The family of this 327-nucleotide sequence from Peptoniphilus lacrimalis is "Bacterial RNase P class A". It scores 255 bits against the family's covariance model. Lineage of the source: Bacteria > Bacillati > Bacillota > Tissierellales > Peptoniphilus lacrimalis. Rfam links the family to the GO terms dimeric ribonuclease P complex, tRNA processing and ribonuclease P activity.

[Rfam]
Nucleotides: 327
Stems, first nucleotide, its partner, number of pairs: 001323010011312001012293007020030004035310003039307005044198004053228001057194005062076005077091001078089004092189002097187002099183003113130002115126004138156002141153003158178001159176007202250004212238001220234005258275003262271003
Number, partner (000 for none) and nucleotide at each position: 001323u002322a003321a004320g005319u006318a007317a008316g009315u010314u011312g012293g013292u014291c015290a016289a017288c018287u019000g020030c021029a022028c023027a024000a025000a026000a027023u028022g029021u030020g031000a032000g033000g034000a035310a036309a037308g038000u039307c040306u041305g042304c043303g044198c045197u046196c047195c048000a049000c050000a051000g052000a053228g054000c055000a056000a057194a058193g059192a060191u061190g062076c063075u064074u065073g066072u067000u068000a069000a070000c071000g072066a073065c074064a075063a076062g077091u078089g079088g080087g081086g082000g083000c084000g085000a086081c087080c088079c089078c090000a091077a092189g093188g094000c095000u096000a097187g098186u099183g100182c101181a102000a103000c104000a105000g106000a107000a108000a109000u110000a111000u112000a113130c114129c115126g116125c117124c118123a119000u120000u121000a122000u123118u124117g125116g126115u127000a128000a129114g130113g131000g132000u133000g134000g135000a136000a137000a138156g139155g140000c141153g142152a143151g144000g145000u146000a147000a148000g149000a150000g151143c152142u153141c154000a155139c156138c157000g158178g159176a160175u161174u162173a163172u164171u165170a166000g167000u168000g169000a170165u171164a172163a173162u174161a175160a176159u177000g178158c179000c180000a181101u182100g183099u184000a185000a186098a187097c188093c189092c190061c191060a192059u193058c194057u195047g196046g197045a198044g199000c200000a201000a202250g203249a204248c205247c206000a207000a208000a209000u210000a211000g212238g213000a214000a215000u216000a217000a218000c219000a220234g221233a222232u223231g224230c225000u226000g227000c228053u229000c230224g231223u232222g233221u234220c235000u236000g237000c238212c239000g240000u241000a242000a243000g244000g245000u246000a247205g248204g249203u250202c251000g252000c253000u254000a255000a256000a257000g258275u259274c260273c261000u262271c263270u264269g265000g266000c267000a268000a269264c270263a271262g272000u273260g274259g275258a276000a277000u278000a279000a280000g281000a282000u283000a284000g285000a286000u287018a288017g289016u290015u291014g292013a293012c294000a295000a296000a297000a298000c299000a300000g301000a302000a303043c304042g305041c306040a307039g308037c309036u310035u311000a312011u313000a314010g315009a316008c317007u318006u319005g320004c321003u322002u323001g324000u325000a326000a327000u